The record is a 587-nucleotide part of an RNA from Oceanococcus atlanticus, which matches "Bacterial large subunit ribosomal RNA" in Rfam. Lineage of the source: Bacteria > Gammaproteobacteria > Chromatiales > Oceanococcaceae > Oceanococcus. Pairs were carried over by alignment from the consensus structure, which is taken from published work.
RNA sequence: CCCGCGGCUAGACGGAAAGACCCCGUGAACCUUUACUAUAGCUUUACGCUGAAUUUUGAGUAUUUUUGUGUAGGAUAGGUGGGAGACUUUGAAACUUGGGCGCCAGCUCAGGUGGAGUCAUCCUUGAAAUACCACCCUGAAAUACUUGGAAUUCUAACCUCGACCCAUUAUCUGGGUUAGGGACAGCGUAUGGUGGGUAGUUUGACUGGGGCGGUCUCCUCCCAAAGAGUAACGGAGGAGCGCGAAGGUAACCUCAGCACGGUCGGAAAUCGUGCAAUGAGUGCAAAGGCAUAAGGUUGCUUGACUGCGAGUCAGACACGACGAGCAGGUACGAAAGUAGGUCUUAGUGAUCCGGUGGUUCUGUAUGGAAGGGCCAUCGCUCAACGGAUAAAAGGUACUCCGGGGAUAACAGGCUGAUUCCUCCCAAGAGUCCACAUCGACGGAGGAGUUUGGCACCUCGAUGUCGGCUCAUCACAUCCUGGGGCUGAAGCAGGUCCCAAGGGUAUGGCUGUUCGCCAUUUAAAGUGGUACGCGAGCUGGGUUCAGAACGUCGUGAGACAGUUCGGUCCCUAUCUGCCGUGGGCGUU
Numbered sequence: 001c002c003c004g005c006g007g008c009u010a011g012a013c014g015g016a017a018a019g020a021c022c023c024c025g026u027g028a029a030c031c032u033u034u035a036c037u038a039u040a041g042c043u044u045u046a047c048g049c050u051g052a053a054u055u056u057u058g059a060g061u062a063u064u065u066u067u068g069u070g071u072a073g074g075a076u077a078g079g080u081g082g083g084a085g086a087c088u089u090u091g092a093a094a095c096u097u098g099g100g101c102g103c104c105a106g107c108u109c110a111g112g113u114g115g116a117g118u119c120a121u122c123c124u125u126g127a128a129a130u131a132c133c134a135c136c137c138u139g140a141a142a143u144a145c146u147u148g149g150a151a152u153u154c155u156a157a158c159c160u161c162g163a164c165c166c167a168u169u170a171u172c173u174g175g176g177u178u179a180g181g182g183a184c185a186g187c188g189u190a191u192g193g194u195g196g197g198u199a200g201u202u203u204g205a206c207u208g209g210g211g212c213g214g215u216c217u218c219c220u221c222c223c224a225a226a227g228a229g230u231a232a233c234g235g236a237g238g239a240g241c242g243c244g245a246a247g248g249u250a251a252c253c254u255c256a257g258c259a260c261g262g263u264c265g266g267a268a269a270u271c272g273u274g275c276a277a278u279g280a281g282u283g284c285a286a287a288g289g290c291a292u293a294a295g296g297u298u299g300c301u302u303g304a305c306u307g308c309g310a311g312u313c314a315g316a317c318a319c320g321a322c323g324a325g326c327a328g329g330u331a332c333g334a335a336a337g338u339a340g341g342u343c344u345u346a347g348u349g350a351u352c353c354g355g356u357g358g359u360u361c362u363g364u365a366u367g368g369a370a371g372g373g374c375c376a377u378c379g380c381u382c383a384a385c386g387g388a389u390a391a392a393a394g395g396u397a398c399u400c401c402g403g404g405g406a407u408a409a410c411a412g413g414c415u416g417a418u419u420c421c422u423c424c425c426a427a428g429a430g431u432c433c434a435c436a437u438c439g440a441c442g443g444a445g446g447a448g449u450u451u452g453g454c455a456c457c458u459c460g461a462u463g464u465c466g467g468c469u470c471a472u473c474a475c476a477u478c479c480u481g482g483g484g485c486u487g488a489a490g491c492a493g494g495u496c497c498c499a500a501g502g503g504u505a506u507g508g509c510u511g512u513u514c515g516c517c518a519u520u521u522a523a524a525g526u527g528g529u530a531c532g533c534g535a536g537c538u539g540g541g542u543u544c545a546g547a548a549c550g551u552c553g554u555g556a557g558a559c560a561g562u563u564c565g566g567u568c569c570c571u572a573u574c575u576g577c578c579g580u581g582g583g584c585g586u587u
Base pairs, nucleotide, nucleotide: 001583002582003581004580005579006578007577008576010575011574012573014570015569022404023403024402025401027400028399029396030395031394032393033392035201036200037199038198042193043192045190046189047188048187051154052153053152054151055150056149057148058147059146060145061144062143063142064141065140066139068137078136079135080134081133082132085119086118087117094113095112096111097110098109099108100107101106158181159180160179162178163177164176165175166174167173204216205215206214207213217239218238219237220236221235222234240385242342243341248300249299250298251297252296253295254280255279257275258274259273260272261271262270281290282289305328306327307326308325311322312321313320330339331338332337353379354378355377356376357375358374359373361372362371413454414453415452417451418448419447420446421445422444423443424442428438429437465540466538467537468536469535470532471529472528473527474526475525478503479502481498482497483496484495485494486493505519506518507517508516509515546564547563548562549561550559551558552557